Overview:
The family of this 144-nucleotide sequence from Alkalihalobacillus trypoxylicola is "FMN riboswitch aptamer (RFN element)". The organism belongs to Alkalihalobacillus, within Bacteria. Rfam describes the family as follows. The RFN element is a highly conserved domain that is found frequently in the 5'-untranslated regions of prokaryotic mRNAs that encode for flavin mononucleotide (FMN) biosynthesis and transport proteins.
RNA sequence: AUGGAUCUUCGGGGUUAGGUGAAAUUCCUUACCGGCGGUGAUGAAAUCUUAACAUUUCUUAGCCCGCGACUCUUUUUUUAAUAAAAGACUGACUUGGUUAAAUUCCAAGGCCGACGGUUAAAGUCCGGAUGGGAGGAGAUUAAA
Numbered sequence: 001a002u003g004g005a006u007c008u009u010c011g012g013g014g015u016u017a018g019g020u021g022a023a024a025u026u027c028c029u030u031a032c033c034g035g036c037g038g039u040g041a042u043g044a045a046a047u048c049u050u051a052a053c054a055u056u057u058c059u060u061a062g063c064c065c066g067c068g069a070c071u072c073u074u075u076u077u078u079u080a081a082u083a084a085a086a087g088a089c090u091g092a093c094u095u096g097g098u099u100a101a102a103u104u105c106c107a108a109g110g111c112c113g114a115c116g117g118u119u120a121a122a123g124u125c126c127g128g129a130u131g132g133g134a135g136g137a138g139a140u141u142a143a144a
Stems, first nucleotide, its partner, number of pairs: 004141007017029003031124002033113002035067004062111002071088002093109005115127003